[Rfam]
RNA sequence: ACAAGGUGAUGACCUAUGAAUUGACAGCCAGUGAUUGAAGCGUCUGCCUGUCAGUUCUGUAGGCCACUGCUGUGU
Numbered sequence: 001a002c003a004a005g006g007u008g009a010u011g012a013c014c015u016a017u018g019a020a021u022u023g024a025c026a027g028c029c030a031g032u033g034a035u036u037g038a039a040g041c042g043u044c045u046g047c048c049u050g051u052c053a054g055u056u057c058u059g060u061a062g063g064c065c066a067c068u069g070c071u072g073u074g075u
Stems, first nucleotide, its partner, number of pairs: 001075003005071004010066002013063004018057010029046003

Shown here is a 75-nucleotide RNA from Labrus bergylta, a member of the family "mir-192/215 microRNA precursor family".
NCBI's taxonomy places the organism under Eukaryota, Neopterygii, Neoteleostei, Acanthomorphata, Labrus.
The family has 48 seed sequences and 810 matches in Rfam 15.1.